[Rfam]
Overview
This 266-nucleotide RNA from Serpentinicella alkaliphila belongs to the Rfam family "Bacterial large signal recognition particle RNA". NCBI's taxonomy places the organism under Bacteria, Bacillota, Peptostreptococcales, Natronincolaceae, Serpentinicella. The match comes from Rfam's covariance-model search (196 bits). The signal recognition particle (SRP) is a universally conserved ribonucleoprotein involved in the co-translational targeting of proteins to membranes.
RNA sequence: CUGUGCUAGACGGGGAUGUAGCGGCGCCCUGUAACCCGCAAAUCCGCUAUAGCGGGGUUGAACUCCUCACGGAGGCUUGAUGCCUGUAGUGCUGGCUUAAGUAAGUGAUGAUGAAAAUUGGGUCCUACGCAAUGGAAACUCAUGAACCCCGCCAGGUCCGGAAGGAAGCAACGGUAAGUGAUCAUUUUCGUGUGCCGUGGGGUAGCCUGAUUAGAGUUAACUGCUUAGGUAACGGCUAUGGACACAUGUCGAAUUGAGGUGCACAG
Numbered sequence: 001c002u003g004u005g006c007u008a009g010a011c012g013g014g015g016a017u018g019u020a021g022c023g024g025c026g027c028c029c030u031g032u033a034a035c036c037c038g039c040a041a042a043u044c045c046g047c048u049a050u051a052g053c054g055g056g057g058u059u060g061a062a063c064u065c066c067u068c069a070c071g072g073a074g075g076c077u078u079g080a081u082g083c084c085u086g087u088a089g090u091g092c093u094g095g096c097u098u099a100a101g102u103a104a105g106u107g108a109u110g111a112u113g114a115a116a117a118u119u120g121g122g123u124c125c126u127a128c129g130c131a132a133u134g135g136a137a138a139c140u141c142a143u144g145a146a147c148c149c150c151g152c153c154a155g156g157u158c159c160g161g162a163a164g165g166a167a168g169c170a171a172c173g174g175u176a177a178g179u180g181a182u183c184a185u186u187u188u189c190g191u192g193u194g195c196c197g198u199g200g201g202g203u204a205g206c207c208u209g210a211u212u213a214g215a216g217u218u219a220a221c222u223g224c225u226u227a228g229g230u231a232a233c234g235g236c237u238a239u240g241g242a243c244a245c246a247u248g249u250c251g252a253a254u255u256g257a258g259g260u261g262c263a264c265a266g
Stems, first nucleotide, its partner, number of pairs: 001266006009059003012030004019023001035056005065259005074250003078246001081244002084241006093231002097228006105221002107218003116212008124201006130192002133190005140181004149174003157166003
Pairs were carried over by alignment from the consensus structure, which is taken from published work. The family's RNA type in Rfam is non-coding RNA gene.